[Rfam]
RNA sequence: UUUACAAAGGGCCUGUAAUCUGGCAAAAUAUUUAAUCGCGUAGGUCUGAAAAAUUCAGACCCAUUCUUAAAAAAGAAUGUCCAAGCGUG
Numbered sequence: 001u002u003u004a005c006a007a008a009g010g011g012c013c014u015g016u017a018a019u020c021u022g023g024c025a026a027a028a029u030a031u032u033u034a035a036u037c038g039c040g041u042a043g044g045u046c047u048g049a050a051a052a053a054u055u056c057a058g059a060c061c062c063a064u065u066c067u068u069a070a071a072a073a074a075g076a077a078u079g080u081c082c083a084a085g086c087g088u089g
Stems, first nucleotide, its partner, number of pairs: 002018005037089005043061007062079007
RNA: ATPC RNA motif
Organism: Prochlorococcus marinus